[Rfam]
RNA sequence: GGGCAGGAUAGGCAUUCGUCAGACCGCCAGCAGGCUGGGCCGUUCCGAAUGCUGCAACUUAUUCGACCUGACGGUCUCAACGCAUUCUUCUCUACGAGGGA
Numbered sequence: 001g002g003g004c005a006g007g008a009u010a011g012g013c014a015u016u017c018g019u020c021a022g023a024c025c026g027c028c029a030g031c032a033g034g035c036u037g038g039g040c041c042g043u044u045c046c047g048a049a050u051g052c053u054g055c056a057a058c059u060u061a062u063u064c065g066a067c068c069u070g071a072c073g074g075u076c077u078c079a080a081c082g083c084a085u086u087c088u089u090c091u092c093u094a095c096g097a098g099g100g101a
Stems, first nucleotide, its partner, number of pairs: 001092003005088005012052006021044002027038004058082001065076004
RNA: traJ-II RNA